[Rfam]
RNA sequence: UAUCCGCUUCUCCUCCCUGAGCGGGUAACCUGGGCCGCUAGGCCCAGGGUCUCGUUUAUCCCCGGGCCCUCUCCCUUGUGCCCGGGGUUUUUUUAU
Numbered sequence: 001u002a003u004c005c006g007c008u009u010c011u012c013c014u015c016c017c018u019g020a021g022c023g024g025g026u027a028a029c030c031u032g033g034g035c036c037g038c039u040a041g042g043c044c045c046a047g048g049g050u051c052u053c054g055u056u057u058a059u060c061c062c063c064g065g066g067c068c069c070u071c072u073c074c075c076u077u078g079u080g081c082c083c084g085g086g087g088u089u090u091u092u093u094u095a096u
Stems, first nucleotide, its partner, number of pairs: 003025006028050004032045003060087008
Source information: The family of this 96-nucleotide RNA sequence from Acidiferrobacter sp. SPIII_3 is "Burkholderia RNA 7 (anti-hemB)". The literature on the family includes a 2012 paper in BMC Genomics by Khoo et al., "Computational discovery and RT-PCR validation of novel Burkholderia conserved and Burkholderia pseudomallei unique sRNAs". The family's consensus secondary structure is taken from published work. The family's RNA type in Rfam is small RNA. About the family: This RNA motif was identified by computational search in b-proteobacteria Burkholderia. Lineage of the source: Bacteria > Pseudomonadati > Pseudomonadota > Gammaproteobacteria > Acidiferrobacter. Rfam 15.1 lists 479 matches to the family in 458 species. Rfam links the family to the GO terms protein binding and bacterial biofilm matrix.